[Rfam]
RNA sequence: GCCUGGUUGAUUCGUCCUGGGCUGUGGAGCAGGUGAACAGAUGCGGAAAACCUGGGCCCAAUGUGGCGGUCGGAAUGGCGAAGC
Numbered sequence: 001g002c003c004u005g006g007u008u009g010a011u012u013c014g015u016c017c018u019g020g021g022c023u024g025u026g027g028a029g030c031a032g033g034u035g036a037a038c039a040g041a042u043g044c045g046g047a048a049a050a051c052c053u054g055g056g057c058c059c060a061a062u063g064u065g066g067c068g069g070u071c072g073g074a075a076u077g078g079c080g081a082a083g084c
Base pairs, nucleotide, nucleotide: 001022002021003020004019005018006017052073053072054071055070057068058066059065060064
RNA: RAGATH-28 RNA